[Rfam]
This 227-nucleotide RNA from Ornithinibacillus halophilus belongs to the Rfam family "Group II catalytic intron D1-D4-6". On this family, see Lehmann and Schmidt, Crit Rev Biochem Mol Biol 2003: "Group II introns: structure and catalytic versatility of large natural ribozymes". Pairs were carried over by alignment from the consensus structure. Rfam links the family to the GO term Group II intron splicing. Group II introns are found in rRNA, tRNA and mRNA of organelles in fungi, plants and protists, and also in mRNA in bacteria. The match comes from Rfam's covariance-model search (154 bits).
RNA sequence: UGACUCCUGCUUGGUAAGAUAUAGCCAAAUCGCCAAUACCGAGUCUUGGGCUACCUGCAGUAAUGCAGGGUGCUAAGCGUAGACAGGGAGGUAAUAGGCCUGAAAGUGAUUGAGCCUCGAAAUGAUGUAUCGUUGGGAAGGUCGACGGUUUGAGGAUUCUGGAAGACAACUUUUCUUUUAGCGUUAGAAUGGCGAGCUGGAAGAAACUUCCCCGGGGUCAAAGAGCC
Numbered sequence: 001u002g003a004c005u006c007c008u009g010c011u012u013g014g015u016a017a018g019a020u021a022u023a024g025c026c027a028a029a030u031c032g033c034c035a036a037u038a039c040c041g042a043g044u045c046u047u048g049g050g051c052u053a054c055c056u057g058c059a060g061u062a063a064u065g066c067a068g069g070g071u072g073c074u075a076a077g078c079g080u081a082g083a084c085a086g087g088g089a090g091g092u093a094a095u096a097g098g099c100c101u102g103a104a105a106g107u108g109a110u111u112g113a114g115c116c117u118c119g120a121a122a123u124g125a126u127g128u129a130u131c132g133u134u135g136g137g138a139a140g141g142u143c144g145a146c147g148g149u150u151u152g153a154g155g156a157u158u159c160u161g162g163a164a165g166a167c168a169a170c171u172u173u174u175c176u177u178u179u180a181g182c183g184u185u186a187g188a189a190u191g192g193c194g195a196g197c198u199g200g201a202a203g204a205a206a207c208u209u210c211c212c213c214g215g216g217g218u219c220a221a222a223g224a225g226c227c
Base pairs, nucleotide, nucleotide: 011036012035013034014033018031019030020029022195024193026192039087040086043084044083045082046081047079048078049074050073051072054069055068056067057066058065059064111221112219114218115217116216117215118214119213135212136211137210138209139208140207141167142166143165146161147160148159172206173205174204175203176202177201178200179199180198181197182196
Dot-bracket structure: ..........((((...(((.[.[.[..))).))))..((..(((((((((..((((((....))))))..)))...)).)))).)).......................((.((((((...............(((((((((..(((..........)))...)))....(((((((((((.........]].])))))))))))))))))))))))).)......